[Rfam]
RNA sequence: GGGGUCGCACCGCGACCCCGUGUCUAUCCCGGUACCUGGUACGGCCGGGAAGA
Numbered sequence: 001g002g003g004g005u006c007g008c009a010c011c012g013c014g015a016c017c018c019c020g021u022g023u024c025u026a027u028c029c030c031g032g033u034a035c036c037u038g039g040u041a042c043g044g045c046c047g048g049g050a051a052g053a
Base pairs, nucleotide, nucleotide: 001019002018003017004016005015006014007013008012023053024052025051027050028049029048030047031046032045033044